Rfam assigns this 115-nucleotide sequence from Hibiscus syriacus to the family "MIR403 microRNA precursor family". Pairs were carried over by alignment from the consensus structure, which was predicted with WAR. The organism belongs to Hibiscus, within Eukaryota. On this family, see Mica et al., BMC Genomics 2009: "High throughput approaches reveal splicing of primary microRNA transcripts and tissue specific expression of mature microRNAs in Vitis vinifera".
[Rfam]
RNA sequence: GCAUAUUUCAGGUUUGUGCAUGAAUCUAAUAAAACUGUAAGCCACAAAAGGGGAAAAAUCUGGAGAAGUGUUUUUGGUUUCAUGUUAGAUUCACGCACAAACUCGUAAUCUGUAU
Numbered sequence: 001g002c003a004u005a006u007u008u009c010a011g012g013u014u015u016g017u018g019c020a021u022g023a024a025u026c027u028a029a030u031a032a033a034a035c036u037g038u039a040a041g042c043c044a045c046a047a048a049a050g051g052g053g054a055a056a057a058a059u060c061u062g063g064a065g066a067a068g069u070g071u072u073u074u075u076g077g078u079u080u081c082a083u084g085u086u087a088g089a090u091u092c093a094c095g096c097a098c099a100a101a102c103u104c105g106u107a108a109u110c111u112g113u114a115u
Base pairs, nucleotide, nucleotide: 001113002112003111005109006108007107011103012102013101014100015099016098017097018096019095021093022092023091024090025089026088028086029085030084032080033079043070045068